About this RNA
A member of the RNA family "Actinomyces-1 RNA" from Actinomyces weissii, 110 nucleotides long. Pairs were carried over by alignment from the consensus structure, which is taken from published work.
[Rfam]
RNA sequence: AGUGCCGCCAGACGGUACGGACCGUGAGGGUUGGGGAGCCCGCUGACCGUUCCGCUACCGAGGACAGCACAGGUACUAGGGAGCCUGGACUGGACGUUCUGGCGAAGGAG
Numbered sequence: 001a002g003u004g005c006c007g008c009c010a011g012a013c014g015g016u017a018c019g020g021a022c023c024g025u026g027a028g029g030g031u032u033g034g035g036g037a038g039c040c041c042g043c044u045g046a047c048c049g050u051u052c053c054g055c056u057a058c059c060g061a062g063g064a065c066a067g068c069a070c071a072g073g074u075a076c077u078a079g080g081g082a083g084c085c086u087g088g089a090c091u092g093g094a095c096g097u098u099c100u101g102g103c104g105a106a107g108g109a110g
Stems, first nucleotide, its partner, number of pairs: 006104007013060004018054004023049002028041005062095001065092003070087005
Lineage of the source: Bacteria > Actinomycetes > Actinomycetales > Actinomycetaceae > Actinomyces. The match comes from Rfam's covariance-model search (104 bits). It is annotated as a small RNA.